The family of this 72-nucleotide RNA sequence from Pseudoalteromonas luteoviolacea is "tRNA". It is annotated as a transfer RNA. Lineage of the source: Bacteria > Pseudomonadati > Gammaproteobacteria > Alteromonadales > Pseudoalteromonas luteoviolacea. A reference for the family is Lowe and Eddy (1997), "tRNAscan-SE: a program for improved detection of transfer RNA genes in genomic sequence", Nucleic Acids Res. Its family is annotated with triplet codon-amino acid adaptor activity in the Gene Ontology.

[Rfam]
RNA sequence: GCUCUCGUGGUGAAAUGGAUAUCACGUGGCUCUCCGGAAGCUAAGUUACAGGUUCGAUCCCUGUCGAGAGCG
Numbered sequence: 001g002c003u004c005u006c007g008u009g010g011u012g013a014a015a016u017g018g019a020u021a022u023c024a025c026g027u028g029g030c031u032c033u034c035c036g037g038a039a040g041c042u043a044a045g046u047u048a049c050a051g052g053u054u055c056g057a058u059c060c061c062u063g064u065c066g067a068g069a070g071c072g
Stems, first nucleotide, its partner, number of pairs: 001071007010025004027043005048064005